[Rfam]
RNA sequence: CUCUGGAAAGCGGAUCGGCAGGUGACCACCCGCCGAUCCCGCCGACGGUGCAAGCCCGGCUCACCACGCGGGUGAAACUCUCAGGCGCCCCCUCGGGGGUACGGACAGAG
Numbered sequence: 001c002u003c004u005g006g007a008a009a010g011c012g013g014a015u016c017g018g019c020a021g022g023u024g025a026c027c028a029c030c031c032g033c034c035g036a037u038c039c040c041g042c043c044g045a046c047g048g049u050g051c052a053a054g055c056c057c058g059g060c061u062c063a064c065c066a067c068g069c070g071g072g073u074g075a076a077a078c079u080c081u082c083a084g085g086c087g088c089c090c091c092c093u094c095g096g097g098g099g100u101a102c103g104g105a106c107a108g109a110g
Base pairs, nucleotide, nucleotide: 001110002109003108004107005106012039013038014037015036016035017034018033019032041086042085043084044082045081048080050078054073055072056071057070058069
The record is a 110-nucleotide RNA sequence from Amycolatopsis saalfeldensis, which matches "Glycine riboswitch aptamer" in Rfam.
NCBI's taxonomy places the organism under Bacteria, Bacillati, Actinomycetes, Pseudonocardiales, Amycolatopsis.